[Rfam]
RNA sequence: GCAAGAUAAGUGAGAAUCUUAUCCACCGUAAGACUAAGGUUUCCAGGGGAAGGCUCGUCCGCCCUGGGUUAGUCGGGACCUAAGGCGAGGCCGAAAGGCGUAGUCGAUGGACAACAGGUUGAUAUUCCUGUACUAGUAUUGUUAGUGAUGGAGGGACGCAGUAGGCUAAAGGGAGCCAGUUAAUGGAUUCUGGUCUAAGCAGUGAGGUGUGGAAUGUGUCAAAUGCAUUUUCCUUUAACAUUGAGCUGUGAUGGGGAAGCAACUACGGUUGCGAAGCCCUUGAUGUCACACUGCCAAGAAAAUCUUCUAGCGUUUAAUUCAAUACUACCCGUACCGCAAACCGACACAGGUAGUCGAGGCGAGUAGCCUCAGGUGAU
Numbered sequence: 001g002c003a004a005g006a007u008a009a010g011u012g013a014g015a016a017u018c019u020u021a022u023c024c025a026c027c028g029u030a031a032g033a034c035u036a037a038g039g040u041u042u043c044c045a046g047g048g049g050a051a052g053g054c055u056c057g058u059c060c061g062c063c064c065u066g067g068g069u070u071a072g073u074c075g076g077g078a079c080c081u082a083a084g085g086c087g088a089g090g091c092c093g094a095a096a097g098g099c100g101u102a103g104u105c106g107a108u109g110g111a112c113a114a115c116a117g118g119u120u121g122a123u124a125u126u127c128c129u130g131u132a133c134u135a136g137u138a139u140u141g142u143u144a145g146u147g148a149u150g151g152a153g154g155g156a157c158g159c160a161g162u163a164g165g166c167u168a169a170a171g172g173g174a175g176c177c178a179g180u181u182a183a184u185g186g187a188u189u190c191u192g193g194u195c196u197a198a199g200c201a202g203u204g205a206g207g208u209g210u211g212g213a214a215u216g217u218g219u220c221a222a223a224u225g226c227a228u229u230u231u232c233c234u235u236u237a238a239c240a241u242u243g244a245g246c247u248g249u250g251a252u253g254g255g256g257a258a259g260c261a262a263c264u265a266c267g268g269u270u271g272c273g274a275a276g277c278c279c280u281u282g283a284u285g286u287c288a289c290a291c292u293g294c295c296a297a298g299a300a301a302a303u304c305u306u307c308u309a310g311c312g313u314u315u316a317a318u319u320c321a322a323u324a325c326u327a328c329c330c331g332u333a334c335c336g337c338a339a340a341c342c343g344a345c346a347c348a349g350g351u352a353g354u355c356g357a358g359g360c361g362a363g364u365a366g367c368c369u370c371a372g373g374u375g376a377u
Stems, first nucleotide, its partner, number of pairs: 005023006024375004032355004038335002043067006052060002074331004079110002084105003088101001090099003114131005134327008145311002150307005158294004164287003169281005175194005195254002199249004206242003211233004216228004259272005341350002357369004
RNA: Bacterial large subunit ribosomal RNA, nucleotides 1302 to 1678
Organism: Lactococcus garvieae